The record is a 46-nucleotide RNA from Cryptosporidium parvum, which matches "Histone 3' UTR stem-loop" in Rfam. The base pairs follow the family's consensus structure, which is taken from published work. Rfam's curators put it in the seed alignment. Rfam's curators write: The mRNAs of metazoan histone genes lack a poly-A tail. 3' end processing occurs at a site between a highly conserved stem-loop (modelled by this family) and a purine rich region around 20 nts downstream (the histone downstream element, or HDE). The stem-loop is bound by a 31 kDa stem-loop binding protein (SLBP - also termed the histone hairpin binding protein, or HBP). Gene Ontology term of the family: mRNA 3'-end processing by stem-loop binding and cleavage.

RNA sequence: UGACAGGCGUUACUAGACGCCACAAAUAGUAUAUGUUGCUCUUUGG
Numbered sequence: 001u002g003a004c005a006g007g008c009g010u011u012a013c014u015a016g017a018c019g020c021c022a023c024a025a026a027u028a029g030u031a032u033a034u035g036u037u038g039c040u041c042u043u044u045g046g
Stems, first nucleotide, its partner, number of pairs: 006021006